[Rfam]
Rfam assigns this 88-nucleotide sequence from Paludibacterium purpuratum to the family "Neisseria metabolic switch regulator b (RcoF1/NgncR163)". For this family Rfam cites "The sibling sRNAs NgncR_162 and NgncR_163 of Neisseria gonorrhoeae participate in the expression control of metabolic, transport and regulatory proteins" (Bauer et al., Microbiology, 2017). About the family: Sibling sRNA described and independently named in three publications. NgncR163 is N. gonorrhoeae while the others are N. meningitidis RNAs. RcoF1 stands for: RNA regulating colonization factor 1. NmsRb_RcoF1_NgncR163 was shown to be the predominant sibling. They are tandemly arranged, structurally nearly identical and and share 70% sequence identity. They translationally down-regulate genes involved in basic metabolic processes including tricarboxylic acid cycle enzymes and amino acid uptake and degradation. The targets include: fumC, sdhC, gltA, sucC, prpB and prpC Their expression is under the control of RelA. Furthermore, they interact with Hfq and target mRNA that encodes putative colonization factor of the human nasopharynx (PrpB). The family has 6 seed sequences and 65 matches in Rfam 15.1.
RNA sequence: ACGUUGAGAUGCAGCAAUUGCUUCUUGAUAGUUUCUCCUCUAUUUCUCCUUUGUAGACUUAGCGCGGACCAUUGGCCCGCGCAUUUUU
Numbered sequence: 001a002c003g004u005u006g007a008g009a010u011g012c013a014g015c016a017a018u019u020g021c022u023u024c025u026u027g028a029u030a031g032u033u034u035c036u037c038c039u040c041u042a043u044u045u046c047u048c049c050u051u052u053g054u055a056g057a058c059u060u061a062g063c064g065c066g067g068a069c070c071a072u073u074g075g076c077c078c079g080c081g082c083a084u085u086u087u088u
Base pairs, nucleotide, nucleotide: 003029004028005027006026007025008024009023011021039057040056041055042054043053062082063081064080065079066078067077069075070074